[Rfam]
RNA sequence: AUAAGACCUAUGAUGAUUCUAUUACAGUGCAUAGUUCAACCGAGCUUACUAGGCGUUGCGGAAAAACUUGCUUAAUUGUCUUUCGCUCCUAUCUGAGGUCUUGC
Numbered sequence: 001a002u003a004a005g006a007c008c009u010a011u012g013a014u015g016a017u018u019c020u021a022u023u024a025c026a027g028u029g030c031a032u033a034g035u036u037c038a039a040c041c042g043a044g045c046u047u048a049c050u051a052g053g054c055g056u057u058g059c060g061g062a063a064a065a066a067c068u069u070g071c072u073u074a075a076u077u078g079u080c081u082u083u084c085g086c087u088c089c090u091a092u093c094u095g096a097g098g099u100c101u102u103g104c
Stems, first nucleotide, its partner, number of pairs: 004101005

This 104-nucleotide RNA sequence from Nannochloris sp. 'desiccata' belongs to the Rfam family "Small nucleolar RNA snR60/Z15/Z230/Z193/J17". A search with the family's covariance model found it, with a score of 65 bits. Clan: SNORD77 clan. NCBI's taxonomy places the organism under Eukaryota, Viridiplantae, Chlorophyta, Chlorellales, Nannochloris.